ASpks TB sRNA: a 75-nucleotide sequence.
RNA sequence: CUUGGAGGACCCGAGCCACAGCGGCUGGUCCUCGUCCCGCCCCUGGCCAUACGUCGACAACAGCGCCUGCGCCUC
Number, nucleotide and partner (000 for none) at each position: 001c000002u000003u000004g000005g000006a000007g000008g000009a000010c000011c000012c000013g000014a026015g025016c024017c023018a000019c000020a000021g000022c000023g017024g016025c015026u014027g000028g000029u000030c000031c071032u000033c069034g000035u000036c000037c000038c065039g064040c000041c000042c000043c000044u059045g058046g000047c056048c000049a054050u000051a000052c000053g000054u049055c000056g047057a000058c045059a044060a000061c000062a000063g000064c039065g038066c000067c000068u000069g033070c000071g031072c000073c000074u000075c000